[Rfam]
RNA sequence: GAUUGUCGAAGGAGUUAGCCUUAAUUCACGAUC
Dot-bracket structure: ((((((.(((((......))))....)))))))
Rfam assigns this 33-nucleotide sequence from Tenacibaculum sp. SZ-18 to the family "S4-Flavobacteria ribosomal protein leader".
The family is grouped with related families in Rfam's "Ribosomal Protein S4 Leader clan".
Pairs were carried over by alignment from the consensus structure, which is taken from published work.
It scores 43 bits against the family's covariance model.